[Rfam]
RNA: Small nucleolar RNA Z102/R77
RNA sequence: GAAUGAGGUGAUGAUCUUGAUGUUUCCCUAUUGGUUUGACUCGCCGGAAUGAUGGCGUCCGACCUUUGUAUUAGCUCUAUCUGAUCAUUC
Number, nucleotide and partner (000 for none) at each position: 001g000002a089003a088004u087005g086006a000007g000008g000009u000010g000011a000012u000013g000014a000015u000016c000017u000018u000019g000020a000021u000022g000023u000024u000025u000026c000027c000028c000029u000030a000031u000032u000033g000034g000035u000036u000037u000038g059039a000040c000041u000042c057043g056044c055045c054046g000047g000048a000049a000050u000051g000052a000053u000054g045055g044056c043057g042058u000059c038060c000061g000062a000063c000064c000065u000066u000067u000068g000069u000070a000071u000072u000073a000074g000075c000076u000077c000078u000079a000080u000081c000082u000083g000084a000085u000086c005087a004088u003089u002090c000